Shown here is a 137-nucleotide RNA sequence from Cucumis melo, a member of the family "small nucleolar RNA snoR134". Rfam links the family to the GO terms RNA processing and nucleolus.
RNA sequence: AUGCACGAUGCACCCCGGGCUACUCUUAUUAUCUCCAUGACGAUGAUGGCCCCAUUGCUCCUGCUAGAUUGUUGCCGUUUAGUGUUGCAGAUUAGCCUUUCGAUAGCCUGAUCUGUGUCAAAAUAACGCCUACAUUC
Numbered sequence: 001a002u003g004c005a006c007g008a009u010g011c012a013c014c015c016c017g018g019g020c021u022a023c024u025c026u027u028a029u030u031a032u033c034u035c036c037a038u039g040a041c042g043a044u045g046a047u048g049g050c051c052c053c054a055u056u057g058c059u060c061c062u063g064c065u066a067g068a069u070u071g072u073u074g075c076c077g078u079u080u081a082g083u084g085u086u087g088c089a090g091a092u093u094a095g096c097c098u099u100u101c102g103a104u105a106g107c108c109u110g111a112u113c114u115g116u117g118u119c120a121a122a123a124u125a126a127c128g129c130c131u132a133c134a135u136u137c
Stems, first nucleotide, its partner, number of pairs: 003064003007060002010058002017052005023045001024043002074130001076128004083120002086117006095107002